[Rfam]
RNA sequence: UAUAUUUGCGCGCUGAUAGAAAGACUAUCAAAUUACAUAAUAAUCAUUGAAAUAAUAUUGGCAUG
Numbered sequence: 001u002a003u004a005u006u007u008g009c010g011c012g013c014u015g016a017u018a019g020a021a022a023g024a025c026u027a028u029c030a031a032a033u034u035a036c037a038u039a040a041u042a043a044u045c046a047u048u049g050a051a052a053u054a055a056u057a058u059u060g061g062c063a064u065g
Base pairs, nucleotide, nucleotide: 014030015029016028017027018026019025
RNA: S15-Flavobacteria ribosomal protein leader